[Rfam]
RNA sequence: GCGAUGAGCUAAUUUGCAUAAGUCAAUGGGCAUGCUUUUGCUAAACGUAUGAAUGUGGUCAUACGGUCCAUUGCCGCAAUACGCAGAAAAGACGUCUGUCCCUGACAGGCGUC
Numbered sequence: 001g002c003g004a005u006g007a008g009c010u011a012a013u014u015u016g017c018a019u020a021a022g023u024c025a026a027u028g029g030g031c032a033u034g035c036u037u038u039u040g041c042u043a044a045a046c047g048u049a050u051g052a053a054u055g056u057g058g059u060c061a062u063a064c065g066g067u068c069c070a071u072u073g074c075c076g077c078a079a080u081a082c083g084c085a086g087a088a089a090a091g092a093c094g095u096c097u098g099u100c101c102c103u104g105a106c107a108g109g110c111g112u113c
Base pairs, nucleotide, nucleotide: 014079015078016077017076024073025072026071027070028069029068030067031066034041035040046065047064049062050061051060091113092112093111094110095109096108097107098106099105
About this RNA: BsrF: a 113-nucleotide RNA sequence from Niallia endozanthoxylica. The match comes from Rfam's covariance-model search (100 bits). The literature on the family includes a 2008 paper in Gene by Saito et al., "Novel small RNA-encoding genes in the intergenic regions of Bacillus subtilis". Lineage of the source: Bacteria > Bacilli > Caryophanales > Bacillaceae > Niallia. Pairs were carried over by alignment from the consensus structure, which was predicted with WAR.